[Rfam]
The family of this 166-nucleotide RNA sequence from Brassica napus is "U12 minor spliceosomal RNA".
NCBI's taxonomy places the organism under Eukaryota, Embryophyta, Euphyllophyta, Magnoliopsida, Brassica.
Clan: U2 clan.
Its family is annotated with pre-mRNA branch point binding, mRNA branch site recognition and U12 snRNP in the Gene Ontology.
Rfam 15.1 lists 2,106 matches to the family in 1,170 species.
A search with the family's covariance model found it, with a score of 87 bits.
The family's RNA type in Rfam is spliceosomal small nuclear RNA.

RNA sequence: UUGCCUUAAACUAAUGAGUAAGGAAAACAAAGCGAGCGGUGAGAGCCGGUCGCAGCGCUAACAAAAAACAUAGAAAGUGGCGCAAGAAUUUAUGGAAGGGAAAUAGGCUGGCCGAGUCGUUGACGCUGCUUACUUUUGCAGAACUCGAUUCGCGCGGACCUCCCCA
Numbered sequence: 001u002u003g004c005c006u007u008a009a010a011c012u013a014a015u016g017a018g019u020a021a022g023g024a025a026a027a028c029a030a031a032g033c034g035a036g037c038g039g040u041g042a043g044a045g046c047c048g049g050u051c052g053c054a055g056c057g058c059u060a061a062c063a064a065a066a067a068a069c070a071u072a073g074a075a076a077g078u079g080g081c082g083c084a085a086g087a088a089u090u091u092a093u094g095g096a097a098g099g100g101a102a103a104u105a106g107g108c109u110g111g112c113c114g115a116g117u118c119g120u121u122g123a124c125g126c127u128g129c130u131u132a133c134u135u136u137u138g139c140a141g142a143a144c145u146c147g148a149u150u151c152g153c154g155c156g157g158a159c160c161u162c163c164c165c166a
Stems, first nucleotide, its partner, number of pairs: 004023005032053004037048003055083005098165003105161003109157001111155001114151002117148003126141004